[Rfam]
RNA sequence: CUGCAGACCUUUGUCAGCAAGGCUUGCCUGGAGUGGCUAGUUCUUUCCUGUAGUGUCUGCUAGAGAGAACUGAGAUGGUUGAGGCCCUGCUGUGCCUCUUCCAUGGCAAGGUUAUAGGUAUAUCUCAGACAACU
Numbered sequence: 001c002u003g004c005a006g007a008c009c010u011u012u013g014u015c016a017g018c019a020a021g022g023c024u025u026g027c028c029u030g031g032a033g034u035g036g037c038u039a040g041u042u043c044u045u046u047c048c049u050g051u052a053g054u055g056u057c058u059g060c061u062a063g064a065g066a067g068a069a070c071u072g073a074g075a076u077g078g079u080u081g082a083g084g085c086c087c088u089g090c091u092g093u094g095c096c097u098c099u100u101c102c103a104u105g106g107c108a109a110g111g112u113u114a115u116a117g118g119u120a121u122a123u124c125u126c127a128g129a130c131a132a133c134u
Stems, first nucleotide, its partner, number of pairs: 003060006020044003026037003071127005085111002088108003092104003
Dot-bracket structure: ..((((((...........(((...(((......)))....)))..........))))))..........(((((.........((.(((.(((.......))).))).))...........))))).......
The record is a 134-nucleotide sequence from Oncorhynchus tshawytscha, which matches "Small nucleolar RNA SNORA9" in Rfam. Rfam links the family to the GO terms RNA processing and nucleolus.